RNA sequence: UUGUGGUACUGACCCCUUCCGCCCCCCAGGCCUGUGGGUGUGUGGGGCAAAAUCGUCGGGUCACUAUGUGCCAUCGCCGGCGUCCUCACCAUCGCUCUUCCUGUGCCAGUCAUUGUGUCAAAC
Numbered sequence: 001u002u003g004u005g006g007u008a009c010u011g012a013c014c015c016c017u018u019c020c021g022c023c024c025c026c027c028a029g030g031c032c033u034g035u036g037g038g039u040g041u042g043u044g045g046g047g048c049a050a051a052a053u054c055g056u057c058g059g060g061u062c063a064c065u066a067u068g069u070g071c072c073a074u075c076g077c078c079g080g081c082g083u084c085c086u087c088a089c090c091a092u093c094g095c096u097c098u099u100c101c102u103g104u105g106c107c108a109g110u111c112a113u114u115g116u117g118u119c120a121a122a123c
Base pairs, nucleotide, nucleotide: 002122004120005119007117008116009115011113016109017108020105021104022103046086047085049083058072059071
Potassium channel RNA editing signal: a 123-nucleotide sequence from Chionoecetes opilio. Taxonomically the source falls in Chionoecetes (Eukaryota, Arthropoda, Pleocyemata, Majoidea). The family's consensus secondary structure is taken from published work. It scores 54 bits against the family's covariance model. This family represents a group of sequences related to the human potassium channel Kv1.1 hairpin element which directs the efficient modification of an adenosine to inosine by an adenosine deaminase acting on RNA (ADAR).